[Rfam]
Source information
Rfam assigns this 96-nucleotide sequence from Cellvibrio japonicus to the family "t44 RNA".

RNA sequence: GGCGGUAUCACUGAACGUCACACAUGCACCGACACGCGAAACCUGGGUGCCCCCGCUGCGGCUGGGGUUGGUGAGCGGGGUGUGUGGAGGCCUAAC
Numbered sequence: 001g002g003c004g005g006u007a008u009c010a011c012u013g014a015a016c017g018u019c020a021c022a023c024a025u026g027c028a029c030c031g032a033c034a035c036g037c038g039a040a041a042c043c044u045g046g047g048u049g050c051c052c053c054c055g056c057u058g059c060g061g062c063u064g065g066g067g068u069u070g071g072u073g074a075g076c077g078g079g080g081u082g083u084g085u086g087g088a089g090g091c092c093u094a095a096c
Base pairs, nucleotide, nucleotide: 023086024085025084026083027082028081029080030079035077036076037075041072042071043070049068050067051066052065053064
The organism belongs to Cellvibrio japonicus, within Bacteria. The base pairs follow the family's consensus structure, which was predicted with LocARNA.